[Rfam]
RNA sequence: GAAAAUCACUGUUUUGUUAUUCUCGAUCAAUAACACAAUGACACGUGGAAAAGUUAUCAUACGUGUCAUUGCGUUAUUGACCAGAAAUAGCAAAAAGUGAUAUUUCC
Numbered sequence: 001g002a003a004a005a006u007c008a009c010u011g012u013u014u015u016g017u018u019a020u021u022c023u024c025g026a027u028c029a030a031u032a033a034c035a036c037a038a039u040g041a042c043a044c045g046u047g048g049a050a051a052a053g054u055u056a057u058c059a060u061a062c063g064u065g066u067c068a069u070u071g072c073g074u075u076a077u078u079g080a081c082c083a084g085a086a087a088u089a090g091c092a093a094a095a096a097g098u099g100a101u102a103u104u105u106c107c
Stems, first nucleotide, its partner, number of pairs: 003105003012095009023084001025082001027080008036071012050057001

The family of this 107-nucleotide sequence from Prunus persica is "MIR6274 microRNA precursor family". Its family is annotated with RISC complex and miRNA-mediated post-transcriptional gene silencing in the Gene Ontology. The base pairs follow the family's consensus structure, which was predicted with RNAalifold. It scores 83 bits against the family's covariance model. The organism belongs to Prunus, within Eukaryota.